[Rfam]
RNA sequence: CCCCGCCGCCCAACCACAACGGAUCGUCCGGCACGUUCCUGCCGGUGGAAAGGUA
Numbered sequence: 001c002c003c004c005g006c007c008g009c010c011c012a013a014c015c016a017c018a019a020c021g022g023a024u025c026g027u028c029c030g031g032c033a034c035g036u037u038c039c040u041g042c043c044g045g046u047g048g049a050a051a052g053g054u055a
Base pairs, nucleotide, nucleotide: 010052014048015047016046028045029044030043031042032041033040
RNA: msiK RNA